[Rfam]
RNA sequence: CGGGGGUUGCGAAGCAGAUGCGGGCAUACCGGGGUCUCAGAUUCCCGUAAAACACUGAAUUCAAAUAGUCGCAAACGACGAAACUUACGCUUUAGCCGCUUAAGGCUAGCCGUUGCAGCAGUCGGUCAAUGGGCUGUGUGGCGAAAGCCACCGCAACGUCAUCUUACAUUGACUGGUUUCCAGCCGGGUUACUUGGCAGGAAAUAAGACUUAAGGUAACUGGUUUCCAAAAGGCCUGUUGGUCGGCAUGAUGGAAAUAAGAUUUUCAAAUAGACACAACUAAGUAUGUAGAACGCUUUGUAGAGGACUUUCGGACGGGGGU
Numbered sequence: 001c002g003g004g005g006g007u008u009g010c011g012a013a014g015c016a017g018a019u020g021c022g023g024g025c026a027u028a029c030c031g032g033g034g035u036c037u038c039a040g041a042u043u044c045c046c047g048u049a050a051a052a053c054a055c056u057g058a059a060u061u062c063a064a065a066u067a068g069u070c071g072c073a074a075a076c077g078a079c080g081a082a083a084c085u086u087a088c089g090c091u092u093u094a095g096c097c098g099c100u101u102a103a104g105g106c107u108a109g110c111c112g113u114u115g116c117a118g119c120a121g122u123c124g125g126u127c128a129a130u131g132g133g134c135u136g137u138g139u140g141g142c143g144a145a146a147g148c149c150a151c152c153g154c155a156a157c158g159u160c161a162u163c164u165u166a167c168a169u170u171g172a173c174u175g176g177u178u179u180c181c182a183g184c185c186g187g188g189u190u191a192c193u194u195g196g197c198a199g200g201a202a203a204u205a206a207g208a209c210u211u212a213a214g215g216u217a218a219c220u221g222g223u224u225u226c227c228a229a230a231a232g233g234c235c236u237g238u239u240g241g242u243c244g245g246c247a248u249g250a251u252g253g254a255a256a257u258a259a260g261a262u263u264u265u266c267a268a269a270u271a272g273a274c275a276c277a278a279c280u281a282a283g284u285a286u287g288u289a290g291a292a293c294g295c296u297u298u299g300u301a302g303a304g305g306a307c308u309u310u311c312g313g314a315c316g317g318g319g320g321u
Stems, first nucleotide, its partner, number of pairs: 002311007014300005020295003025287005030047005037058004092109006111158006119136004125173007176204006183197002187220006222257007231248001233246003237279004241274003
The record is a 321-nucleotide sequence from Neisseria gonorrhoeae, which matches "transfer-messenger RNA" in Rfam. Taxonomically the source falls in Neisseria gonorrhoeae (Bacteria, Pseudomonadati, Pseudomonadota, Neisseriales). The family's consensus secondary structure is taken from published work. Its family is annotated with RNA catabolic process in the Gene Ontology. Rfam's curators put it in the seed alignment. Rfam classes the family as a non-coding RNA gene.